[Rfam]
RNA sequence: UAGUUUUGCCCGAAGUCAAACUUCUCUAACUUUGAUCAAGUUUAUAGAAAAAUAUUUAAACAUCUACAAUAUCAAAUAAAUGCAUUGUCAAGACAUAUUUCAUAGUGGAUCUAAUGAAACUAACUCGAUGCCAGAGAUGUUGGUACAUUUUUCUAUAAACUUGUUCAAAGCUAGAGAAGCUUAGCUUCAGAAAAAAACUA
Numbered sequence: 001u002a003g004u005u006u007u008g009c010c011c012g013a014a015g016u017c018a019a020a021c022u023u024c025u026c027u028a029a030c031u032u033u034g035a036u037c038a039a040g041u042u043u044a045u046a047g048a049a050a051a052a053u054a055u056u057u058a059a060a061c062a063u064c065u066a067c068a069a070u071a072u073c074a075a076a077u078a079a080a081u082g083c084a085u086u087g088u089c090a091a092g093a094c095a096u097a098u099u100u101c102a103u104a105g106u107g108g109a110u111c112u113a114a115u116g117a118a119a120c121u122a123a124c125u126c127g128a129u130g131c132c133a134g135a136g137a138u139g140u141u142g143g144u145a146c147a148u149u150u151u152u153c154u155a156u157a158a159a160c161u162u163g164u165u166c167a168a169a170g171c172u173a174g175a176g177a178a179g180c181u182u183a184g185c186u187u188c189a190g191a192a193a194a195a196a197a198c199u200a
Base pairs, nucleotide, nucleotide: 005195006194007193012188013187014186015185016184018182019181021179022178023177024176025175026174031169032168033167034166035165045155046154047153048152049151050150051149052148055145057143059141060140061139062138063137064136065135072128073127075125077123

A member of the RNA family "MIR1435 microRNA precursor family" from Digitaria exilis, 200 nucleotides long. The source organism's lineage runs through Eukaryota, Tracheophyta, Magnoliopsida, Petrosaviidae and Digitaria. Rfam links the family to the GO terms miRNA-mediated post-transcriptional gene silencing and RISC complex. The base pairs follow the family's consensus structure, which was predicted with RNAalifold.